[Rfam]
A member of the RNA family "Streptococcus sRNA SpF59 (ldcC RNA)" from Gemmiger sp. An120, 55 nucleotides long. The source organism's lineage runs through Bacteria, Bacillati, Bacillota, Clostridia and Gemmiger. The family's RNA type in Rfam is small RNA.
RNA sequence: UGACCACCCGCGCACAGCGGGUCAAGGCCAUGCGGACAGCCGGGUCAACUGCCGA
Numbered sequence: 001u002g003a004c005c006a007c008c009c010g011c012g013c014a015c016a017g018c019g020g021g022u023c024a025a026g027g028c029c030a031u032g033c034g035g036a037c038a039g040c041c042g043g044g045u046c047a048a049c050u051g052c053c054g055a
Stems, first nucleotide, its partner, number of pairs: 001047005006022006
For this family Rfam cites "Control of virulence by small RNAs in Streptococcus pneumoniae" (Mann et al., PLoS Pathog, 2012). The family's consensus secondary structure was predicted with mfold.